Record summary:
c-di-GMP-I riboswitch aptamer: a 90-nucleotide sequence from Alkalibaculum bacchi. Rfam 15.1 lists 5,092 matches to the family in 1,772 species. Lineage of the source: Bacteria > Bacillati > Bacillota > Clostridia > Alkalibaculum.

RNA sequence: CUAUUGAAAAGGCAAACUUAUCGAAAGGUAAGGACGCAAAGCACGAAGUCUACGGUUAUAAUACAUAACUAGGAUGGUUCAGCUGCCAAA
Dot-bracket structure: ...........((...((((((....))))))...))..(((..((((((....((((.......))))...)))..))).)))......
Numbered sequence: 001c002u003a004u005u006g007a008a009a010a011g012g013c014a015a016a017c018u019u020a021u022c023g024a025a026a027g028g029u030a031a032g033g034a035c036g037c038a039a040a041g042c043a044c045g046a047a048g049u050c051u052a053c054g055g056u057u058a059u060a061a062u063a064c065a066u067a068a069c070u071a072g073g074a075u076g077g078u079u080c081a082g083c084u085g086c087c088a089a090a
Stems, first nucleotide, its partner, number of pairs: 012037002017032006040084003045080003048075003055069004